The family of this 131-nucleotide sequence from Jaculus jaculus is "Small nucleolar RNA SNORA3/SNORA45 family". Gene Ontology terms of the family: nucleolus and RNA processing. For this family Rfam cites "RNomics: an experimental approach that identifies 201 candidates for novel, small, non-messenger RNAs in mouse" (Huttenhofer et al., EMBO J, 2001). Pairs were carried over by alignment from the consensus structure, which was predicted with RNAalifold. Rfam describes the family as follows. The members of this family belong to the H/ACA class of snoRNAs which are thought to guide the sites of modification of uridines to pseudouridines. This family includes mouse snoMBI-28 and human homologues ACA3 (SNORA3) and ACA3-2 (SNORA45). Both ACA3 and ACA3-2 share the same host gene. MBI-28, ACA3 and ACA3-2 are all predicted to guide the pseudouridylation of residues in 28S rRNA. The family is grouped with related families in Rfam's "SNORA3 clan". The family has 6 seed sequences and 2,080 matches in Rfam 15.1.
RNA sequence: GCUGAGACUAGAAUCACAUCCUGACAUGGACCUUGUCCUGGUGUGCUAGAGUUCUCAGAGAUGAUCUGCCGGUCUUGAUUCACUGGCAGGGACAGCUGGUGCUCCUUUUAGUGCCCAGAUCAGGAAUAUGA
Dot-bracket structure: .((((((((..(..((((((..((((.......))))..)))))).)..))).)))))..........(.(((((.(...((((((.((((.(.......).)))).)))))).).))))).)........